[Rfam]
RNA: azaaromatic riboswitch aptamer (yjdF RNA)
Organism: Staphylococcus haemolyticus
RNA sequence: AUAGAGAAAUGUAAAAACACAAUUGGGUUGGUAGUCCCAAUGCAAAUGUAAUCAUUUGUCAGUAACCUUCCUCCUCAGGUCGUCCCUCAUUUCAAGUUAUAUA
Numbered sequence: 001a002u003a004g005a006g007a008a009a010u011g012u013a014a015a016a017a018c019a020c021a022a023u024u025g026g027g028u029u030g031g032u033a034g035u036c037c038c039a040a041u042g043c044a045a046a047u048g049u050a051a052u053c054a055u056u057u058g059u060c061a062g063u064a065a066c067c068u069u070c071c072u073c074c075u076c077a078g079g080u081c082g083u084c085c086c087u088c089a090u091u092u093c094a095a096g097u098u099a100u101a102u103a
Stems, first nucleotide, its partner, number of pairs: 006093006022041006042059006070079003
Dot-bracket structure: .....((((((..........((((((........))))))((((((......))))))..........(((....)))........))))))..........